[Rfam]
RNA sequence: AGUGACUAAAACUGUGCAGCAGCAUGCUUUGCAUGCUAGCAUGCAAAAGCAAUGCUAUUGCACAGUCAAACAGAAAUGAGCAAGUAGACGCAAGGCGUCGGAUUGCGAAUUUCUGCAGCAUCAUGAGAGUGCGAAGCACGAAAUGAUGCGUAGGUCACU
Numbered sequence: 001a002g003u004g005a006c007u008a009a010a011a012c013u014g015u016g017c018a019g020c021a022g023c024a025u026g027c028u029u030u031g032c033a034u035g036c037u038a039g040c041a042u043g044c045a046a047a048a049g050c051a052a053u054g055c056u057a058u059u060g061c062a063c064a065g066u067c068a069a070a071c072a073g074a075a076a077u078g079a080g081c082a083a084g085u086a087g088a089c090g091c092a093a094g095g096c097g098u099c100g101g102a103u104u105g106c107g108a109a110u111u112u113c114u115g116c117a118g119c120a121u122c123a124u125g126a127g128a129g130u131g132c133g134a135a136g137c138a139c140g141a142a143a144u145g146a147u148g149c150g151u152a153g154g155u156c157a158c159u
Stems, first nucleotide, its partner, number of pairs: 001159007011066009021056004025051006031044005071115007080106004087099005118149007129139004
A member of the RNA family "Clostridiales-1 RNA" from Lachnospira multipara, 159 nucleotides long. It scores 109 bits against the family's covariance model.